[Rfam]
RNA sequence: GAGAGUCGGCAAUAAUACCUUGCUGGGUGCCACGAUGUUCCGCCAUCUGGUGGCGCGUGAGCCGUGGAACCACACCCAGCAAGACGCCGCUCCU
Numbered sequence: 001g002a003g004a005g006u007c008g009g010c011a012a013u014a015a016u017a018c019c020u021u022g023c024u025g026g027g028u029g030c031c032a033c034g035a036u037g038u039u040c041c042g043c044c045a046u047c048u049g050g051u052g053g054c055g056c057g058u059g060a061g062c063c064g065u066g067g068a069a070c071c072a073c074a075c076c077c078a079g080c081a082a083g084a085c086g087c088c089g090c091u092c093c094u
Base pairs, nucleotide, nucleotide: 001094003092004091005090006089009087010086023079024078025077026076027075028074029073030067031066032065033064034063036061041055042054043053044052045051046050

This 94-nucleotide sequence belongs to the Rfam family "DUF3800-V RNA". The base pairs follow the family's consensus structure, which is taken from published work. By type it is a small RNA.